Record summary
U2 spliceosomal RNA: a 186-nucleotide sequence from Digitaria exilis. Gene Ontology terms of the family: mRNA branch site recognition, pre-mRNA branch point binding and U2 snRNP. The literature on the family includes a 1997 paper in Nucleic Acids Res by Zwieb, "The uRNA database". The match comes from Rfam's covariance-model search (83 bits). The organism belongs to Digitaria, within Eukaryota. Rfam classes the family as a spliceosomal small nuclear RNA.

RNA sequence: AGAACGUCUUUUGAUCAAGUGCAAUUUGUUCUUAUCAGUUCAAUAUCUGAUAUGUGAGGCCUUGCCCUCACAAUGAUAUUCAAUUUAUUUUUUAUGGAGAGAGCCCGCCAUAGUAGCUUGCUACCUCAGCUCUUAUGUGUCGUCUUAGCGUUGCACUAAGGCUAGCUAGGGCUUGGCGCACCCCAC
Numbered sequence: 001a002g003a004a005c006g007u008c009u010u011u012u013g014a015u016c017a018a019g020u021g022c023a024a025u026u027u028g029u030u031c032u033u034a035u036c037a038g039u040u041c042a043a044u045a046u047c048u049g050a051u052a053u054g055u056g057a058g059g060c061c062u063u064g065c066c067c068u069c070a071c072a073a074u075g076a077u078a079u080u081c082a083a084u085u086u087a088u089u090u091u092u093u094a095u096g097g098a099g100a101g102a103g104c105c106c107g108c109c110a111u112a113g114u115a116g117c118u119u120g121c122u123a124c125c126u127c128a129g130c131u132c133u134u135a136u137g138u139g140u141c142g143u144c145u146u147a148g149c150g151u152u153g154c155a156c157u158a159a160g161g162c163u164a165g166c167u168a169g170g171g172c173u174u175g176g177c178g179c180a181c182c183c184c185a186c
Base pairs, nucleotide, nucleotide: 001012033052034051035050036049037048038047054071055070056069057068058067059065060064100133101132102131103130104129107126113124114123115122116121137179138178139177140176141175142174144170145169146168147167148166149165
Dot-bracket structure: (..........)....................((((((........)))))).(((((((...)).)))))............................(((((..(.....((((....)))).)..)))))...((((((.((((((...............))))))...)))))).......